[Rfam]
RNA: MIR6217 microRNA precursor family
RNA sequence: CUGCCACUGAAUAAGUUAUUCUGUGGCCACUUUGAGUUACGAUAAUUACUAUACUAAUUUACAAGAUUAUGGUACCUCUCUCAUAAGUGAUUUAUUAUAACAUUAUGGUAAGUAUCAUCUUGAAUUAUAGUACCCCAUGUAUCGUAAAUGUGUUUGUUAUUAUCGUAAAUUGGUAUAAACAUUAUCGUAAAACAAGGUGACUAUAGAAUAAGUUAUUGCCAGCUGCAG
Dot-bracket structure: ((((..((((((((.(((((((((((.((((((...((((((((((...(((((((((((((..(((.((((((....(.(.....(((..(((((((((..(....(.......).....)..))))))))....)..)))...).)......)))))).))))))))))))))))...))))))))))...)))))).))))))))))).)))))..)))..))))